[Rfam]
RNA sequence: ACACGGGAAAGGAGGUGGUUCGAUCAAUGAGCAAGUAUCGGACGCGUGAGGUGGCUGCCCGCUAGCCGCCACUCCGGUCUCCCGACCGAAGUCAGGCCCGUGGCGACUGCAGCGCCGCGGACUGUGCCGGUUUCAGAACCGUGCCAGACGGUCGGCGAAAACCAGGCAGACACCCGACCCGCAGGCCGCCGAGGACGUCCCCUCGGCACCGUUCCACCCGGAGCGGAAGGCCUGCGGGUCGCUGCGU
Numbered sequence: 001a002c003a004c005g006g007g008a009a010a011g012g013a014g015g016u017g018g019u020u021c022g023a024u025c026a027a028u029g030a031g032c033a034a035g036u037a038u039c040g041g042a043c044g045c046g047u048g049a050g051g052u053g054g055c056u057g058c059c060c061g062c063u064a065g066c067c068g069c070c071a072c073u074c075c076g077g078u079c080u081c082c083c084g085a086c087c088g089a090a091g092u093c094a095g096g097c098c099c100g101u102g103g104c105g106a107c108u109g110c111a112g113c114g115c116c117g118c119g120g121a122c123u124g125u126g127c128c129g130g131u132u133u134c135a136g137a138a139c140c141g142u143g144c145c146a147g148a149c150g151g152u153c154g155g156c157g158a159a160a161a162c163c164a165g166g167c168a169g170a171c172a173c174c175c176g177a178c179c180c181g182c183a184g185g186c187c188g189c190c191g192a193g194g195a196c197g198u199c200c201c202c203u204c205g206g207c208a209c210c211g212u213u214c215c216a217c218c219c220g221g222a223g224c225g226g227a228a229g230g231c232c233u234g235c236g237g238g239u240c241g242c243u244g245c246g247u
Stems, first nucleotide, its partner, number of pairs: 014059006060157004065152002068149001070147001175241013189206006
Dot-bracket structure: .............((((((..................................))))))((((.((.(.(............................................................................).).)).)))).................(((((((((((((.((((((......))))))......................)))))))))))))......
RNA: Actinobacteria sRNA Ms_IGR-5